Annotation:
glmS glucosamine-6-phosphate activated ribozyme aptamer: a 161-nucleotide RNA from Desulfosporosinus youngiae. Taxonomically the source falls in Desulfosporosinus youngiae (Bacteria, Bacillota, Eubacteriales, Desulfitobacteriaceae).
RNA sequence: CAAUCAUAUAAAGCGCCAGGACCUUAGCAGUUAAUCUCUGAGGUCGACGAGGAAGAGGGUUAUCGAAGGAUUCGGCGGGUCCCUCUCGGUGGCUUGUCACCGUAAAGCUUACUUAAAACCGAAGAGUAAUUUUCGGGACAAAGGUGAAGCUGACAAGACAA
Numbered sequence: 001c002a003a004u005c006a007u008a009u010a011a012a013g014c015g016c017c018a019g020g021a022c023c024u025u026a027g028c029a030g031u032u033a034a035u036c037u038c039u040g041a042g043g044u045c046g047a048c049g050a051g052g053a054a055g056a057g058g059g060u061u062a063u064c065g066a067a068g069g070a071u072u073c074g075g076c077g078g079g080u081c082c083c084u085c086u087c088g089g090u091g092g093c094u095u096g097u098c099a100c101c102g103u104a105a106a107g108c109u110u111a112c113u114u115a116a117a118a119c120c121g122a123a124g125a126g127u128a129a130u131u132u133u134c135g136g137g138a139c140a141a142a143g144g145u146g147a148a149g150c151u152g153a154c155a156a157g158a159c160a161a
Base pairs, nucleotide, nucleotide: 020045021044022043023042024041025040026039027038054086055085056084057083058082063075064074065073066072087102088101089100090099091098106151107150108149109148110147111145119136120135121134122133123132124131125130